[Rfam]
RNA sequence: AUUGUUUUGCCCCCCAACUUCGAGCUUUAUGGCUUUUGCCAGGUUUCAUUUUUGAGUGAGCCGCUCGACCAACACUAAACCAGAAACAGGGCAAAU
Numbered sequence: 001a002u003u004g005u006u007u008u009g010c011c012c013c014c015c016a017a018c019u020u021c022g023a024g025c026u027u028u029a030u031g032g033c034u035u036u037u038g039c040c041a042g043g044u045u046u047c048a049u050u051u052u053u054g055a056g057u058g059a060g061c062c063g064c065u066c067g068a069c070c071a072a073c074a075c076u077a078a079a080c081c082a083g084a085a086a087c088a089g090g091g092c093a094a095a096u
Stems, first nucleotide, its partner, number of pairs: 006095007020068006030041004042062003046059002
Dot-bracket structure: .....(((((((.......((((((....((((....))))(((.((..........)))))))))))....................))))))).
The family of this 96-nucleotide RNA from Legionella rubrilucens is "RAGATH-13 RNA". A search with the family's covariance model found it, with a score of 102 bits. The base pairs follow the family's consensus structure, which is taken from published work. On this family, see Weinberg et al., Nat Chem Biol 2015: "New classes of self-cleaving ribozymes revealed by comparative genomics analysis".